The record is a 78-nucleotide RNA sequence from Diachasma alloeum, which matches "mir-87 microRNA precursor family" in Rfam. Rfam links the family to the GO terms miRNA-mediated post-transcriptional gene silencing and RISC complex. A search with the family's covariance model found it, with a score of 58 bits.
RNA sequence: CACGAACGUGCCUGACUCCUUGCUCCUACCCGUGUAUUUUAAAAUUCUGGGUGAGCAAAGUUUCAGGUGUGUUUGUGA
Numbered sequence: 001c002a003c004g005a006a007c008g009u010g011c012c013u014g015a016c017u018c019c020u021u022g023c024u025c026c027u028a029c030c031c032g033u034g035u036a037u038u039u040u041a042a043a044a045u046u047c048u049g050g051g052u053g054a055g056c057a058a059a060g061u062u063u064c065a066g067g068u069g070u071g072u073u074u075g076u077g078a
Base pairs, nucleotide, nucleotide: 002076003075004074005073006072007071009069010068011067012066013065014064015063018060020058021057023055024054025053029051030050031049